[Rfam]
RNA sequence: GUUGGAUACGGAGACAUGUGCCCGGUUACUAUUGGCGGCAAAAUAGUGGGAUCGAUGUGUGCCAUCGCCGGAGUACUGACCAUAGCCCUACCUGUCCCUGUCAUCGUUUCCAAU
Dot-bracket structure: ((.((..((((.((((.(.((...............((.(........((...........))..........).))................)).).)))).))))..)).))
Shown here is a 114-nucleotide RNA sequence from Oncorhynchus mykiss, a member of the family "Potassium channel RNA editing signal". For this family Rfam cites "Control of human potassium channel inactivation by editing of a small mRNA hairpin" (Bhalla et al., Nat Struct Mol Biol, 2004). Rfam links the family to the GO term adenosine to inosine editing. It scores 106 bits against the family's covariance model. By type it is a cis-regulatory element. NCBI's taxonomy places the organism under Eukaryota, Osteoglossocephalai, Protacanthopterygii, Salmoninae, Oncorhynchus.